[Rfam]
RNA: Small nucleolar RNA SNORA33
RNA sequence: AAGGUAGAAAAUCUUUUUGUCUGCUUAUCUGAAUGUGUUUCUGCAGAAAUUUAGAAAAUGCUGGCAAUAGUAAAGCCAUGUUAUGAGCCUUAAAGACAUUGAAGUUCUUAAGGUCCCUGAAAGUGGCUAUAGGA
Numbered sequence: 001a002a003g004g005u006a007g008a009a010a011a012u013c014u015u016u017u018u019g020u021c022u023g024c025u026u027a028u029c030u031g032a033a034u035g036u037g038u039u040u041c042u043g044c045a046g047a048a049a050u051u052u053a054g055a056a057a058a059u060g061c062u063g064g065c066a067a068u069a070g071u072a073a074a075g076c077c078a079u080g081u082u083a084u085g086a087g088c089c090u091u092a093a094a095g096a097c098a099u100u101g102a103a104g105u106u107c108u109u110a111a112g113g114u115c116c117c118u119g120a121a122a123g124u125g126g127c128u129a130u131a132g133g134a
Base pairs, nucleotide, nucleotide: 003065005063006062007061020047021046022045023044024043075127076126077125078124087114088113089112090111091110092109093108095106096105097104